The record is a 101-nucleotide sequence from Synaphobranchus kaupii, which matches "Vault RNA" in Rfam. The family's RNA type in Rfam is non-coding RNA gene. The match comes from Rfam's covariance-model search (70 bits).

[Rfam]
RNA sequence: GCGCCGGUUUAGCUCAGUGGUUACUUCGUUGUCAAACUUUGAGUUACGUCAAACUACACCUUCUCCGGAGGGUCGAACCACGGGCGCUGUCCGGCGUUUUG
Dot-bracket structure: .((((((....((((.((((....((((.............................................)))))))))))).....)))))).....
Numbered sequence: 001g002c003g004c005c006g007g008u009u010u011a012g013c014u015c016a017g018u019g020g021u022u023a024c025u026u027c028g029u030u031g032u033c034a035a036a037c038u039u040u041g042a043g044u045u046a047c048g049u050c051a052a053a054c055u056a057c058a059c060c061u062u063c064u065c066c067g068g069a070g071g072g073u074c075g076a077a078c079c080a081c082g083g084g085c086g087c088u089g090u091c092c093g094g095c096g097u098u099u100u101g
Stems, first nucleotide, its partner, number of pairs: 002096006012085004017081004025077004
The source organism's lineage runs through Eukaryota, Metazoa, Eumetazoa, Gnathostomata and Synaphobranchus.
The base pairs follow the family's consensus structure, which is taken from published work.